[Rfam]
RNA sequence: GCCUUUGAGGAUGAUCAAAUAAAUAACUUUCGUUCUUCUGAGAUGCUCCAUGUGGAAAAAUAUAUGGAGACCUGAACUGAAGAGGC
Numbered sequence: 001g002c003c004u005u006u007g008a009g010g011a012u013g014a015u016c017a018a019a020u021a022a023a024u025a026a027c028u029u030u031c032g033u034u035c036u037u038c039u040g041a042g043a044u045g046c047u048c049c050a051u052g053u054g055g056a057a058a059a060a061u062a063u064a065u066g067g068a069g070a071c072c073u074g075a076a077c078u079g080a081a082g083a084g085g086c
Stems, first nucleotide, its partner, number of pairs: 003084004